[Rfam]
RNA sequence: ACGCAGAGUAGAAGCAGGCAGCGGCCGCCUCAGCGCCGCGGGUCAUUGCUCUGGUU
Numbered sequence: 001a002c003g004c005a006g007a008g009u010a011g012a013a014g015c016a017g018g019c020a021g022c023g024g025c026c027g028c029c030u031c032a033g034c035g036c037c038g039c040g041g042g043u044c045a046u047u048g049c050u051c052u053g054g055u056u
Base pairs, nucleotide, nucleotide: 005052006051007050008049009048010047015041018043019042021039022038023037024036025035
Record summary:
The record is a 56-nucleotide RNA from Ramlibacter aurantiacus, which matches "Xanthine riboswitch aptamer (NMT1 RNA)" in Rfam. The family's consensus secondary structure is taken from published work. Gene Ontology term of the family: purine nucleobase binding. The source organism's lineage runs through Bacteria, Pseudomonadati, Pseudomonadota, Comamonadaceae and Ramlibacter.